The family of this 130-nucleotide RNA from Beta vulgaris is "U11 spliceosomal RNA". Its family is annotated with mRNA 5'-splice site recognition, pre-mRNA 5'-splice site binding and U11 snRNP in the Gene Ontology. Taxonomically the source falls in Beta vulgaris (Eukaryota, Streptophyta, Caryophyllales, Betoideae). It scores 76 bits against the family's covariance model.
RNA sequence: UAAAAGGGUCGGUUGGCUAAUUAUGCCACGCCUGUCUUGAGAUAAGGCGGGUGCUGUAUGGCUAUCAAGACAUAUGGCCGGCAUAAUUUGUGGAAGCCUAUAGGAUUGGCUUGCUUGGCCGAUCCUCCUG
Number, nucleotide and partner (000 for none) at each position: 001u000002a000003a000004a000005a000006g000007g000008g082009u081010c080011g079012g078013u000014u028015g027016g026017c025018u000019a000020a000021u000022u000023a000024u000025g017026c016027c015028a014029c053030g052031c051032c050033u049034g048035u047036c046037u045038u044039g043040a000041g000042a000043u039044a038045a037046g036047g035048c034049g033050g032051g031052u030053g029054c077055u076056g075057u074058a073059u072060g071061g000062c000063u000064a000065u000066c000067a000068a000069g000070a000071c060072a059073u058074a057075u056076g055077g054078c012079c011080g010081g009082c008083a000084u000085a000086a000087u000088u000089u000090g000091u000092g000093g000094a000095a000096g000097c000098c000099u000100a000101u000102a126103g125104g124105a123106u122107u121108g120109g119110c118111u117112u000113g000114c000115u000116u000117g111118g110119c109120c108121g107122a106123u105124c104125c103126u102127c000128c000129u000130g000